[Rfam]
RNA sequence: UGUGCUGUUCGAAAGACCCGGGUCCAUCAGCGGAUGGGGAGGUUCCCC
Numbered sequence: 001u002g003u004g005c006u007g008u009u010c011g012a013a014a015g016a017c018c019c020g021g022g023u024c025c026a027u028c029a030g031c032g033g034a035u036g037g038g039g040a041g042g043u044u045c046c047c048c
Stems, first nucleotide, its partner, number of pairs: 001026002004023003007018001009016002
Dot-bracket structure: ((.((((.((....)).)..))).))......................

The record is a 48-nucleotide RNA, which matches "DUF3800-XI RNA" in Rfam. It is one of the family's seed sequences. Rfam classes the family as a small RNA. From the family's description: Actinobacteria, Firmicutes, Proteobacteria, Spirochaetes (1 example).